[Rfam]
RNA sequence: AUGUCGUCUUGGAACGAAGCGCUGCAUGGAUCCUAAAAGGCGGGGCAAAAUUGGAGUGGGCAAUGCUCUCUUCAGAUUCAACUCGUUUGCUCGGGUUUUGGCUGUCGACGUCUACCUCAGCUGAGAUUCGUCGUGUUUGAGGGAAGGUUUAGGUCAAGCCCGCAGCAUUCCGGCAAGUCACAUAACGGCAGGGGCUCGGAUAUGAGUCUU
Numbered sequence: 001a002u003g004u005c006g007u008c009u010u011g012g013a014a015c016g017a018a019g020c021g022c023u024g025c026a027u028g029g030a031u032c033c034u035a036a037a038a039g040g041c042g043g044g045g046c047a048a049a050a051u052u053g054g055a056g057u058g059g060g061c062a063a064u065g066c067u068c069u070c071u072u073c074a075g076a077u078u079c080a081a082c083u084c085g086u087u088u089g090c091u092c093g094g095g096u097u098u099u100g101g102c103u104g105u106c107g108a109c110g111u112c113u114a115c116c117u118c119a120g121c122u123g124a125g126a127u128u129c130g131u132c133g134u135g136u137u138u139g140a141g142g143g144a145a146g147g148u149u150u151a152g153g154u155c156a157a158g159c160c161c162g163c164a165g166c167a168u169u170c171c172g173g174c175a176a177g178u179c180a181c182a183u184a185a186c187g188g189c190a191g192g193g194g195c196u197c198g199g200a201u202a203u204g205a206g207u208c209u210u
Stems, first nucleotide, its partner, number of pairs: 055071002085170001088167003104159002193208005